[Rfam]
RNA sequence: GGCGAUAAAUUGCGGUGUGCAAUAGAUACAGCGGACCCGGGGGCAGUACCCGGCGGCUCCACCACCUCCUCUGGCGUUGCAGGGGAAAUGACGGGGCCGAACUAGGAUCGACGUGUAUUGAAAAGCAUCGUUUUUGCUCGGGCUGAGUAACCCGUUCAAGGCUCAAAACCCACAAGUGCCAACGACAACGAAGCACUUGCUCUCGCUGCGUAA
Numbered sequence: 001g002g003c004g005a006u007a008a009a010u011u012g013c014g015g016u017g018u019g020c021a022a023u024a025g026a027u028a029c030a031g032c033g034g035a036c037c038c039g040g041g042g043g044c045a046g047u048a049c050c051c052g053g054c055g056g057c058u059c060c061a062c063c064a065c066c067u068c069c070u071c072u073g074g075c076g077u078u079g080c081a082g083g084g085g086a087a088a089u090g091a092c093g094g095g096g097c098c099g100a101a102c103u104a105g106g107a108u109c110g111a112c113g114u115g116u117a118u119u120g121a122a123a124a125g126c127a128u129c130g131u132u133u134u135u136g137c138u139c140g141g142g143c144u145g146a147g148u149a150a151c152c153c154g155u156u157c158a159a160g161g162c163u164c165a166a167a168a169c170c171c172a173c174a175a176g177u178g179c180c181a182a183c184g185a186c187a188a189c190g191a192a193g194c195a196c197u198u199g200c201u202c203u204c205g206c207u208g209c210g211u212a213a
Stems, first nucleotide, its partner, number of pairs: 001138005015128004027117003031114003037053005054099007139154004
Dot-bracket structure: (((((.........((((........(((.(((...(((((.......)))))(((((((................................)))))))............)))))).......)))).....)))))((((........))))...........................................................
RNA: permuted transfer-messenger RNA
Organism: Altererythrobacter sp. TH136